This 186-nucleotide sequence from Cavia porcellus belongs to the Rfam family "Connexin-43 internal ribosome entry site (IRES)". The family's consensus secondary structure is taken from published work. This family represents the connexin-43 internal ribosome entry site (IRES) which allows cap independent translation during conditions such as heat shock and stress.
RNA sequence: AGCUUUAACCCAGUGUCAGCAAUUUUAUUUCAUUAGAGGAAGGAGUGGAGGAAGGUACCAAAUAGCAGCAAACUUUAAACAGUUUUGCCUCUUGAACUUUUUCAGUUUGCUUCAUCCUCUGAGGAAGGUAAUCACUUGACUUUCUCACUUCACAUCUUUUAAGUGAAAGAACAGCAACCAGGCAGG
Numbered sequence: 001a002g003c004u005u006u007a008a009c010c011c012a013g014u015g016u017c018a019g020c021a022a023u024u025u026u027a028u029u030u031c032a033u034u035a036g037a038g039g040a041a042g043g044a045g046u047g048g049a050g051g052a053a054g055g056u057a058c059c060a061a062a063u064a065g066c067a068g069c070a071a072a073c074u075u076u077a078a079a080c081a082g083u084u085u086u087g088c089c090u091c092u093u094g095a096a097c098u099u100u101u102u103c104a105g106u107u108u109g110c111u112u113c114a115u116c117c118u119c120u121g122a123g124g125a126a127g128g129u130a131a132u133c134a135c136u137u138g139a140c141u142u143u144c145u146c147a148c149u150u151c152a153c154a155u156c157u158u159u160u161a162a163g164u165g166a167a168a169g170a171a172c173a174g175c176a177a178c179c180a181g182g183c184a185g186g
Stems, first nucleotide, its partner, number of pairs: 002020003008014002029126003033122007040112003047106001051103001053102003070086001087097001135182004141177002144174002148169003151165003155161001